[Rfam]
RNA sequence: UCAGUCAACCUAAAGAACUGUUUAAGACUAGAACCCUAAUGGAAAUUGUCAAUCAAGAGUACAAUGGACUAUACAACGGUCAACCACAUUAUAUGUAGGUCAGGAGAAGGCAGGGAGUCUCCUGUUGAAUAAGAAGUACAAAUAGACAGGAACAGUUCUUUU
Numbered sequence: 001u002c003a004g005u006c007a008a009c010c011u012a013a014a015g016a017a018c019u020g021u022u023u024a025a026g027a028c029u030a031g032a033a034c035c036c037u038a039a040u041g042g043a044a045a046u047u048g049u050c051a052a053u054c055a056a057g058a059g060u061a062c063a064a065u066g067g068a069c070u071a072u073a074c075a076a077c078g079g080u081c082a083a084c085c086a087c088a089u090u091a092u093a094u095g096u097a098g099g100u101c102a103g104g105a106g107a108a109g110g111c112a113g114g115g116a117g118u119c120u121c122c123u124g125u126u127g128a129a130u131a132a133g134a135a136g137u138a139c140a141a142a143u144a145g146a147c148a149g150g151a152a153c154a155g156u157u158c159u160u161u162u
Base pairs, nucleotide, nucleotide: 012161013160014159015158016157017156018155019154020153025120026119027118028117029116040063041062046056047055048054067081068080069079070078083100084099085098086096087095088094089093121150122149123148124147125146126145
Record summary: Rfam assigns this 162-nucleotide RNA to the family "RAGATH-9 RNA". Rfam classes the family as a small RNA. A reference for the family is Weinberg et al. (2015), "New classes of self-cleaving ribozymes revealed by comparative genomics analysis", Nat Chem Biol. The base pairs follow the family's consensus structure, which is taken from published work.